[Rfam]
Nucleotides: 052
Base pairs, nucleotide, nucleotide: 002013003012004011022044023043024042025041026040027039028038029037030036
Number, partner (000 for none) and nucleotide at each position: 001000u002013g003012g004011u005000a006000g007000a008000u009000g010000c011004a012003c013002c014000c015000u016000g017000g018000u019000u020000c021000g022044g023043c024042u025041c026040u027039a028038g029037a030036g031000u032000u033000u034000c035000c036030c037029u038028c039027u040026a041025g042024g043023g044022c045000u046000u047000u048000u049000u050000a051000u052000u
Annotation: Shown here is a 52-nucleotide RNA sequence from Oscillatoria sp. FACHB-1406, a member of the family "Nitrogen stress-induced RNA 1". The organism belongs to Oscillatoria, within Bacteria. The base pairs follow the family's consensus structure. The match comes from Rfam's covariance-model search (45 bits). On this family, see Ionescu et al., J Mol Biol 2010: "Heterocyst-specific transcription of NsiR1, a non-coding RNA encoded in a tandem array of direct repeats in cyanobacteria". Rfam classes the family as a small RNA.